[Rfam]
RNA sequence: CCCGCCAUGCCUCUCCACGAUGCACACUUUGGCGGGU
Numbered sequence: 001c002c003c004g005c006c007a008u009g010c011c012u013c014u015c016c017a018c019g020a021u022g023c024a025c026a027c028u029u030u031g032g033c034g035g036g037u
Stems, first nucleotide, its partner, number of pairs: 001036006008024003
abiF RNA: a 37-nucleotide RNA sequence from Candidatus Nitrotoga fabula.
About the family: Actinobacteria, Bacteroidetes, Clostridia, Proteobacteria, one Clostridia phage.
By type it is a small RNA.
The family has 126 seed sequences and 282 matches in Rfam 15.1.